The record is a 112-nucleotide sequence from Izhakiella capsodis, which matches "Fumarate/nitrate reductase regulator sRNA" in Rfam. A reference for the family is Durand and Storz (2010), "Reprogramming of anaerobic metabolism by the FnrS small RNA", Mol Microbiol. It scores 103 bits against the family's covariance model.
[Rfam]
RNA sequence: GCAGGUGAAUGUAACGCCAAGCGAUGGGCGUUGCGCUCCAUAUUGUCUUACUUAUUUUUUGAAUUAUUGCAUAGCACAUUUAAUUCGAUACGCCGGCGUAAAGUCGGCUUUU
Numbered sequence: 001g002c003a004g005g006u007g008a009a010u011g012u013a014a015c016g017c018c019a020a021g022c023g024a025u026g027g028g029c030g031u032u033g034c035g036c037u038c039c040a041u042a043u044u045g046u047c048u049u050a051c052u053u054a055u056u057u058u059u060u061g062a063a064u065u066a067u068u069g070c071a072u073a074g075c076a077c078a079u080u081u082a083a084u085u086c087g088a089u090a091c092g093c094c095g096g097c098g099u100a101a102a103g104u105c106g107g108c109u110u111u112u
Stems, first nucleotide, its partner, number of pairs: 001046004007038002010035009061086006068076003092108006